[Rfam]
RNA: Mu-gpT-DE RNA
RNA sequence: UCCUGACAGCGAUCCCCGCUGACACUAGCCACGACAGGAGUUAACCAUG
Numbered sequence: 001u002c003c004u005g006a007c008a009g010c011g012a013u014c015c016c017c018g019c020u021g022a023c024a025c026u027a028g029c030c031a032c033g034a035c036a037g038g039a040g041u042u043a044a045c046c047a048u049g
Stems, first nucleotide, its partner, number of pairs: 002038004007021005